[Rfam]
RNA sequence: CGACGGACGACCGUCGUUGUAAGAACUUCCGGGACGACCCG
Number, nucleotide and partner (000 for none) at each position: 001c016002g015003a014004c013005g012006g011007a000008c000009g000010a000011c006012c005013g004014u003015c002016g001017u000018u000019g000020u000021a000022a000023g000024a000025a000026c000027u000028u000029c000030c041031g040032g039033g038034a000035c000036g000037a000038c033039c032040c031041g030